RNA sequence: AAAUAGUCAUACAACUGACGGAAGUGGAAUAACCACAUGAAGUAUGAUGUAUUUUAAGCCGACCGUCUGGGCAAUUUUG
Numbered sequence: 001a002a003a004u005a006g007u008c009a010u011a012c013a014a015c016u017g018a019c020g021g022a023a024g025u026g027g028a029a030u031a032a033c034c035a036c037a038u039g040a041a042g043u044a045u046g047a048u049g050u051a052u053u054u055u056a057a058g059c060c061g062a063c064c065g066u067c068u069g070g071g072c073a074a075u076u077u078u079g
Base pairs, nucleotide, nucleotide: 006048007047008046009045010044011043012042015039017067018066019065020064021063024036025035026034027033058072059071060070
RNA: ZMP/ZTP riboswitch aptamer (pfl RNA motif)
Organism: Clostridium sp. MD294